[Rfam]
RNA sequence: CCCACACCCAUGUGUGUAGGACCUCAAAGGAUCACCAUUAAAUUUGGUAUAGAUCUCUAAAAAAGUCAAGUCUCACACCCAUGUGAUAACUUUUCUAGAGAUCUAUACCAAAUUUAAUGAUGAUCAUUUGAGGUCCUACAUACAUGGGUGUGGA
Numbered sequence: 001c002c003c004a005c006a007c008c009c010a011u012g013u014g015u016g017u018a019g020g021a022c023c024u025c026a027a028a029g030g031a032u033c034a035c036c037a038u039u040a041a042a043u044u045u046g047g048u049a050u051a052g053a054u055c056u057c058u059a060a061a062a063a064a065g066u067c068a069a070g071u072c073u074c075a076c077a078c079c080c081a082u083g084u085g086a087u088a089a090c091u092u093u094u095c096u097a098g099a100g101a102u103c104u105a106u107a108c109c110a111a112a113u114u115u116a117a118u119g120a121u122g123a124u125c126a127u128u129u130g131a132g133g134u135c136c137u138a139c140a141u142a143c144a145u146g147g148g149u150g151u152g153g154a
Stems, first nucleotide, its partner, number of pairs: 002153012015140014030125003034121001036119024061094006068087001069082001
The family of this 154-nucleotide sequence from Amborella trichopoda is "MIR8565 microRNA precursor family".